RNA sequence: AUACAUCUAGAACCAUACCCCUAAACUCCCUAGAUGGAAGGAUUAUGUGAUCAUAAUCCUUCUUUUUU
Numbered sequence: 001a002u003a004c005a006u007c008u009a010g011a012a013c014c015a016u017a018c019c020c021c022u023a024a025a026c027u028c029c030c031u032a033g034a035u036g037g038a039a040g041g042a043u044u045a046u047g048u049g050a051u052c053a054u055a056a057u058c059c060u061u062c063u064u065u066u067u068u
Stems, first nucleotide, its partner, number of pairs: 004036006038061010
Dot-bracket structure: ...((((((.....................)))))).((((((((((....)))))))))).......